[Rfam]
RNA sequence: GCUGUGAUGAACUGAGUCUUUAGUCGGAUACCCCUUCACUCUAAUCAUGAGUGAGACGUCCAGUCUGAAAAGC
Numbered sequence: 001g002c003u004g005u006g007a008u009g010a011a012c013u014g015a016g017u018c019u020u021u022a023g024u025c026g027g028a029u030a031c032c033c034c035u036u037c038a039c040u041c042u043a044a045u046c047a048u049g050a051g052u053g054a055g056a057c058g059u060c061c062a063g064u065c066u067g068a069a070a071a072g073c
Stems, first nucleotide, its partner, number of pairs: 001073003005069001